[Rfam]
RNA sequence: GACUUACCCCACGGGUGCCCAAUGCAUUGGGCUGAGAUUGCGCGCUGUUGCUGCGCGGGACCGUUCGAACCUGUCUGGUUAACACCAGCGAAGGAAGCGAGGAUUGAUUGUCC
Numbered sequence: 001g002a003c004u005u006a007c008c009c010c011a012c013g014g015g016u017g018c019c020c021a022a023u024g025c026a027u028u029g030g031g032c033u034g035a036g037a038u039u040g041c042g043c044g045c046u047g048u049u050g051c052u053g054c055g056c057g058g059g060a061c062c063g064u065u066c067g068a069a070c071c072u073g074u075c076u077g078g079u080u081a082a083c084a085c086c087a088g089c090g091a092a093g094g095a096a097g098c099g100a101g102g103a104u105u106g107a108u109u110g111u112c113c
Stems, first nucleotide, its partner, number of pairs: 007101001009099001011064004016058001017032005039057005070094003075088004

About this RNA: A member of the RNA family "TPP riboswitch aptamer (THI element)" from Corynebacterium glutamicum, 113 nucleotides long. The family's consensus secondary structure is taken from published work. NCBI's taxonomy places the organism under Bacteria, Actinomycetes, Mycobacteriales, Corynebacteriaceae, Corynebacterium glutamicum. It scores 64 bits against the family's covariance model.